This 79-nucleotide sequence from Xenococcus sp. PCC 7305 belongs to the Rfam family "Cyano-1 RNA".
By type it is a small RNA.
Lineage of the source: Bacteria > Bacillati > Cyanophyceae > Pleurocapsales > Xenococcus.
It scores 58 bits against the family's covariance model.
RNA sequence: UUGUGUGUGAGGAGUAAGUUCAAUAGAAGAAGGUUUUGGGGUCGAAACACGGAAAGACUCCCGGAACCUUUUUCUUUUU
Numbered sequence: 001u002u003g004u005g006u007g008u009g010a011g012g013a014g015u016a017a018g019u020u021c022a023a024u025a026g027a028a029g030a031a032g033g034u035u036u037u038g039g040g041g042u043c044g045a046a047a048c049a050c051g052g053a054a055a056g057a058c059u060c061c062c063g064g065a066a067c068c069u070u071u072u073u074c075u076u077u078u079u
Base pairs, nucleotide, nucleotide: 026074027073028072029071030070033067034066038062039061040060041058042057043056